[Rfam]
RNA sequence: GACUGGAAUGAUGAAAAAGUAUCCUUAGGCGUGGUUGUGGCCGUCUUGGUCACCUGUGUGCCGCUUGCCAAUGCUAGGGCUCGUCAUAGUUACACUGACUUGUU
Numbered sequence: 001g002a003c004u005g006g007a008a009u010g011a012u013g014a015a016a017a018a019g020u021a022u023c024c025u026u027a028g029g030c031g032u033g034g035u036u037g038u039g040g041c042c043g044u045c046u047u048g049g050u051c052a053c054c055u056g057u058g059u060g061c062c063g064c065u066u067g068c069c070a071a072u073g074c075u076a077g078g079g080c081u082c083g084u085c086a087u088a089g090u091u092a093c094a095c096u097g098a099c100u101u102g103u104u
Stems, first nucleotide, its partner, number of pairs: 001104003005100002